[Rfam]
RNA: Small nucleolar RNA SNORD98
RNA sequence: GGGUAAUGAUGUUUCAUCCUAUUCCAUUGCUGAAAUGUAAUGUGGAAAAAAAAAAGCUGAACUC
Dot-bracket structure: ((((........................................................))))
Numbered sequence: 001g002g003g004u005a006a007u008g009a010u011g012u013u014u015c016a017u018c019c020u021a022u023u024c025c026a027u028u029g030c031u032g033a034a035a036u037g038u039a040a041u042g043u044g045g046a047a048a049a050a051a052a053a054a055a056g057c058u059g060a061a062c063u064c
Stems, first nucleotide, its partner, number of pairs: 001064004